[Rfam]
RNA sequence: UGGGUGGCAUCUAAGGAGCUACACCAGACUUUUUAAUACAUAAAAAUUAUGCGCAUAUCUAAAUGAAUGGGACAUAUUU
Numbered sequence: 001u002g003g004g005u006g007g008c009a010u011c012u013a014a015g016g017a018g019c020u021a022c023a024c025c026a027g028a029c030u031u032u033u034u035a036a037u038a039c040a041u042a043a044a045a046a047u048u049a050u051g052c053g054c055a056u057a058u059c060u061a062a063a064u065g066a067a068u069g070g071g072a073c074a075u076a077u078u079u
Stems, first nucleotide, its partner, number of pairs: 001026003004022005010017002049075003052071001054069003058066002
The family of this 79-nucleotide sequence from Clostridium fungisolvens is "pan motif". The match comes from Rfam's covariance-model search (46 bits). The source organism's lineage runs through Bacteria, Bacillati, Bacillota, Clostridia and Clostridium.